[Rfam]
RNA sequence: GUGUCCCCAAAAGUUCUCUGCAAGCACUUCACAAGGCAUCGUCAUUGUGAGAGCUUUUUGUGAAGUGUUUGGGGGAACUUUUGGUGUCAC
Numbered sequence: 001g002u003g004u005c006c007c008c009a010a011a012a013g014u015u016c017u018c019u020g021c022a023a024g025c026a027c028u029u030c031a032c033a034a035g036g037c038a039u040c041g042u043c044a045u046u047g048u049g050a051g052a053g054c055u056u057u058u059u060g061u062g063a064a065g066u067g068u069u070u071g072g073g074g075g076a077a078c079u080u081u082u083g084g085u086g087u088c089a090c
Base pairs, nucleotide, nucleotide: 005086007084008083009082011080012079013078014077015076016075017074018073019072022070023069024068025067026066027065028064029063030062031061032060033059034058035057036056
Notes:
Rfam assigns this 90-nucleotide RNA from Sorghum bicolor to the family "mir-395 microRNA precursor family". For this family Rfam cites "Computational Identification of Plant MicroRNAs and Their Targets, Including a Stress-Induced miRNA" (Jones-Rhoades and Bartel, Mol Cell, 2004). Pairs were carried over by alignment from the consensus structure, which was predicted with PFOLD. The match comes from Rfam's covariance-model search (77 bits).